[Rfam]
RNA sequence: CUUGGCCGAGCCCAGCCACAACGGCUCCGAGCGGUCGUGGCCGUACGUGGCGAGCAGGGCCUCGGCCUC
Numbered sequence: 001c002u003u004g005g006c007c008g009a010g011c012c013c014a015g016c017c018a019c020a021a022c023g024g025c026u027c028c029g030a031g032c033g034g035u036c037g038u039g040g041c042c043g044u045a046c047g048u049g050g051c052g053a054g055c056a057g058g059g060c061c062u063c064g065g066c067c068u069c
Base pairs, nucleotide, nucleotide: 014026015025016024017023027065028064029063032059038053041050042049043048